Rfam assigns this 132-nucleotide sequence from Rattus norvegicus to the family "Small nucleolar RNA SNORA17". Gene Ontology terms of the family: RNA processing and nucleolus. Rfam's curators write: snoRNA ACA 17 belongs to the H/ACA family of snoRNAs and is predicted to guide pseudouridylation of the 28S rRNA at positions U4659 and U4598. It shares the same host gene together with ACA43. NB This family has a high threshold value to exclude a large number of closely related sequences that do not appear to have conserved H and ACA boxes, and may be pseudogenes. By type it is an H/ACA-box small nucleolar RNA. The family has 53 seed sequences and 5,784 matches in Rfam 15.1. NCBI's taxonomy places the organism under Eukaryota, Craniata, Tetrapoda, Muroidea, Rattus.

RNA sequence: CUCGCCCCUAGAAGCACUGCACUUGUGGCUGCUGUGUCACAUGUGUGUCAGUAGGUGGCAGAGAGGAGAGAGGCUACGUCUAGGCUCAGUGUUCUGACCUCUGAAUAUAUGAAUGAUUAGUAACCUAACAUU
Numbered sequence: 001c002u003c004g005c006c007c008c009u010a011g012a013a014g015c016a017c018u019g020c021a022c023u024u025g026u027g028g029c030u031g032c033u034g035u036g037u038c039a040c041a042u043g044u045g046u047g048u049c050a051g052u053a054g055g056u057g058g059c060a061g062a063g064a065g066g067a068g069a070g071a072g073g074c075u076a077c078g079u080c081u082a083g084g085c086u087c088a089g090u091g092u093u094c095u096g097a098c099c100u101c102u103g104a105a106u107a108u109a110u111g112a113a114u115g116a117u118u119a120g121u122a123a124c125c126u127a128a129c130a131u132u
Stems, first nucleotide, its partner, number of pairs: 002061001004059003007055004014048002019046004024041006068129001071126003075122003084114001086112003090107005